[Rfam]
RNA sequence: UAUCUGUUUUGAUGAAUUAUGAAACUUAUCACAUGUCAGACUUCAGAGUUUCUUUUAAACAAUGAAACAAUGAGAUUACAAGUUCAUAAAUCUGAACAGAUU
Numbered sequence: 001u002a003u004c005u006g007u008u009u010u011g012a013u014g015a016a017u018u019a020u021g022a023a024a025c026u027u028a029u030c031a032c033a034u035g036u037c038a039g040a041c042u043u044c045a046g047a048g049u050u051u052c053u054u055u056u057a058a059a060c061a062a063u064g065a066a067a068c069a070a071u072g073a074g075a076u077u078a079c080a081a082g083u084u085c086a087u088a089a090a091u092c093u094g095a096a097c098a099g100a101u102u
Base pairs, nucleotide, nucleotide: 002101003100004099005098006097007096048068049067050066051065